[Rfam]
RNA sequence: GUGUGAUAAUGACAACCUGGCUUUAAACUCUGCAUUGAGAGGAGCAGGUUUGAUUCUCAGACAC
Numbered sequence: 001g002u003g004u005g006a007u008a009a010u011g012a013c014a015a016c017c018u019g020g021c022u023u024u025a026a027a028c029u030c031u032g033c034a035u036u037g038a039g040a041g042g043a044g045c046a047g048g049u050u051u052g053a054u055u056c057u058c059a060g061a062c063a064c
Stems, first nucleotide, its partner, number of pairs: 001064004014050006021044003028039003
This 64-nucleotide RNA sequence from Echeneis naucrates belongs to the Rfam family "Selenocysteine insertion sequence 1". Rfam 15.1 lists 3,793 matches to the family in 721 species. The family's consensus secondary structure is taken from published work. The incorporation of selenocysteine into a protein sequence is directed by an in-frame UGA codon (usually a stop codon) within the coding region of the mRNA. Selenoprotein mRNAs contain a conserved secondary structure in the 3' UTR that is required for the distinction of UGA stop from UGA selenocysteine. The selenocysteine insertion sequence (SECIS) is around 60 nt in length and adopts a hairpin structure which is sufficiently well-defined and conserved to act as a computational screen for selenoprotein genes. Rfam classes the family as a cis-regulatory element.